[Rfam]
RNA: c-di-AMP riboswitch aptamer (ydaO/yuaA leader)
RNA sequence: UCGCACCACCUGCCUAGUGCGCCGCACGGCGCAGCGGGGGACCCAACGUCCCGGGGCGAACGCGGCACCCGCCGCAAGGGCGCCUUCCGCCCGAGCCCGUCAGCUAACCCCGUCGGCAGUCUGGAAGGCCUGG
Numbered sequence: 001u002c003g004c005a006c007c008a009c010c011u012g013c014c015u016a017g018u019g020c021g022c023c024g025c026a027c028g029g030c031g032c033a034g035c036g037g038g039g040g041a042c043c044c045a046a047c048g049u050c051c052c053g054g055g056g057c058g059a060a061c062g063c064g065g066c067a068c069c070c071g072c073c074g075c076a077a078g079g080g081c082g083c084c085u086u087c088c089g090c091c092c093g094a095g096c097c098c099g100u101c102a103g104c105u106a107a108c109c110c111c112g113u114c115g116g117c118a119g120u121c122u123g124g125a126a127g128g129c130c131u132g133g
Base pairs, nucleotide, nucleotide: 011118012117013116014115018033019032020031021030022029023028034113035112036111037110038109039108044053054098055097056096062075063074064073065072078092079091080090081089